Notes:
The record is a 46-nucleotide RNA from Quang Binh virus, which matches "Insect-Specific Flavivirus 3' UTR repeats Rb" in Rfam.
[Rfam]
RNA sequence: CCCCAGUUCCUAGGUCCAGGAAGGAUCCCGUGGCGCUGAAAGGGCG
Numbered sequence: 001c002c003c004c005a006g007u008u009c010c011u012a013g014g015u016c017c018a019g020g021a022a023g024g025a026u027c028c029c030g031u032g033g034c035g036c037u038g039a040a041a042g043g044g045c046g
Stems, first nucleotide, its partner, number of pairs: 001044003004038004009033002013027005
It is one of the family's seed sequences. The family's RNA type in Rfam is cis-regulatory element. The organism belongs to Orthoflavivirus, within Viruses. Clan: Insect-Specific Flavivirus 3' UTR repeats Ra and Rb elements. 3' UTRs in insect specific flavivirus families present three to four repeats of conserved element Rb. Pairs were carried over by alignment from the consensus structure, which was predicted with LocARNA. A reference for the family is Hoshino et al. (2007), "Genetic characterization of a new insect flavivirus isolated from Culex pipiens mosquito in Japan", Virology.